The family of this 54-nucleotide RNA sequence from Salmo trutta is "UnaL2 LINE 3' element". The match comes from Rfam's covariance-model search (69 bits). The family has 30 seed sequences and 493,311 matches in Rfam 15.1. Lineage of the source: Eukaryota > Craniata > Gnathostomata > Actinopterygii > Salmo. Rfam links the family to the GO term transposition, RNA-mediated.

RNA sequence: UGUAUUCACUACUGUAAGUCGCUCUGGAUAAGAGCGUCUGCUAAAUGAAAAAAA
Numbered sequence: 001u002g003u004a005u006u007c008a009c010u011a012c013u014g015u016a017a018g019u020c021g022c023u024c025u026g027g028a029u030a031a032g033a034g035c036g037u038c039u040g041c042u043a044a045a046u047g048a049a050a051a052a053a054a
Base pairs, nucleotide, nucleotide: 013043014041015040016039020036021035022034023033024032025031